[Rfam]
RNA sequence: UUCCGCGAAAACUAUUUAGGUAGUGCGAUGAAUAAAUAAACGUUUGGAGGUAGAGCACUAAAUGGGCUAGGGGGAAGAGAUUCUUACCAAACCUAAUAAAACUCCGAAUGCCAAGCGUUGUUCUUCAUCAGACAGACUGUGGGUGCUAAGGUCCAUGGUCGAGAGGGAAAGAGCCCAGACCACCAGAUAAGGUCCCCAAAUUAUGAUUAAGUGUGAAAGGAUGUGGAAAUUCCUUAACAGCCGGGAGGUUGGCUUAGAAGCAGCCAUCCUUUAAAGAUAGCGUAACAGCUCACCGGUCUAAUAGAGUUUCUGCGCCGAAGAUGUAACGGGGCUAAAAUCAUAUACCGAAUCUGUGGGUUUAUAAAAUUUUCGAAUUUUAUAAGCGGUAGCGGAACGUUCUGUAAGCCUGUGAAGGAGUACCCGUGAGGGACUCUGGAGGUAUCAGAAGUGCGAAU
Number, nucleotide and partner (000 for none) at each position: 001u394002u393003c392004c391005g390006c389007g000008a000009a000010a000011a024012c023013u022014a021015u020016u000017u000018a000019g000020g015021u014022a013023g012024u011025g000026c131027g129028a128029u127030g126031a125032a124033u000034a000035a000036a000037u000038a122039a119040a118041c117042g116043u115044u114045u113046g112047g111048a000049g000050g000051u000052a000053g105054a103055g102056c000057a000058c000059u099060a000061a097062a000063u095064g094065g093066g092067c000068u000069a000070g088071g087072g085073g084074g083075a082076a081077g000078a000079g000080a000081u076082u075083c074084u073085u072086a000087c071088c070089a000090a000091a000092c066093c065094u064095a063096a000097u061098a000099a059100a000101a000102c055103u054104c000105c053106g000107a000108a000109u000110g000111c047112c046113a045114a044115g043116c042117g041118u040119u039120g000121u000122u038123c000124u032125u031126c030127a029128u028129c027130a000131g026132a000133c000134a000135g160136a159137c158138u157139g156140u155141g154142g153143g152144u151145g000146c000147u000148a000149a000150g000151g144152u143153c142154c141155a140156u139157g138158g137159u136160c135161g000162a000163g000164a000165g176166g175167g174168a000169a000170a000171g000172a000173g000174c167175c166176c165177a000178g000179a000180c356181c355182a354183c353184c000185a352186g351187a350188u000189a000190a000191g346192g345193u344194c000195c000196c000197c000198a000199a000200a343201u000202u342203a341204u340205g339206a338207u337208u000209a000210a000211g000212u000213g000214u000215g000216a000217a000218a000219g316220g315221a000222u000223g313224u312225g311226g310227a309228a308229a307230u306231u305232c304233c000234u000235u000236a000237a000238c000239a000240g297241c296242c295243g294244g293245g000246a270247g269248g268249u000250u000251g265252g264253c263254u000255u000256a000257g000258a000259a000260g000261c000262a000263g253264c252265c251266a000267u000268c248269c247270u246271u275272u000273a000274a000275a271276g291277a000278u000279a000280g289281c288282g000283u000284a000285a000286c000287a000288g281289c280290u000291c276292a000293c244294c243295g242296g241297u240298c000299u000300a000301a000302u000303a000304g232305a231306g230307u229308u228309u227310c226311u225312g224313c223314g000315c220316c219317g000318a000319a000320g000321a000322u000323g000324u000325a000326a000327c000328g000329g000330g000331g000332c000333u000334a000335a000336a000337a207338u206339c205340a204341u203342a202343u200344a193345c192346c191347g000348a000349a000350u187351c186352u185353g183354u182355g181356g180357g384358u383359u382360u381361a380362u379363a378364a377365a376366a375367u374368u000369u000370u000371c000372g000373a000374a367375u366376u365377u364378u363379a362380u361381a360382a359383g358384c357385g000386g000387u000388a000389g006390c005391g004392g003393a002394a001395c450396g000397u447398u446399c445400u444401g443402u000403a000404a000405g440406c439407c438408u000409g000410u000411g000412a000413a000414g434415g433416a432417g431418u430419a000420c429421c428422c427423g000424u000425g000426a000427g422428g421429g420430a418431c417432u416433c415434u414435g000436g000437a000438g407439g406440u405441a000442u000443c401444a400445g399446a398447a397448g000449u000450g395451c000452g000453a000454a000455u000
RNA: Bacterial large subunit ribosomal RNA, nucleotides 797 to 1251